[Rfam]
RNA sequence: CUACCGACAUCGAGAGGUGUCGGGAUGGGAUGCCAGAAGUCAGCAGACGCCAUAUUAGUCGGCCUUACCAGUUGAUGAAGGGC
Numbered sequence: 001c002u003a004c005c006g007a008c009a010u011c012g013a014g015a016g017g018u019g020u021c022g023g024g025a026u027g028g029g030a031u032g033c034c035a036g037a038a039g040u041c042a043g044c045a046g047a048c049g050c051c052a053u054a055u056u057a058g059u060c061g062g063c064c065u066u067a068c069c070a071g072u073u074g075a076u077g078a079a080g081g082g083c
Stems, first nucleotide, its partner, number of pairs: 001027001004023008039048003049083003058076006

The record is an 83-nucleotide RNA from Geotalea uraniireducens, which matches "Group II catalytic intron D1-D4-1" in Rfam. The source organism's lineage runs through Bacteria, Pseudomonadati, Desulfuromonadia, Geobacterales and Geotalea uraniireducens. The sequence is in the family's curated seed alignment. From the family's description: Group II introns are found in rRNA, tRNA and mRNA of organelles in fungi, plants and protists, and also in mRNA in bacteria.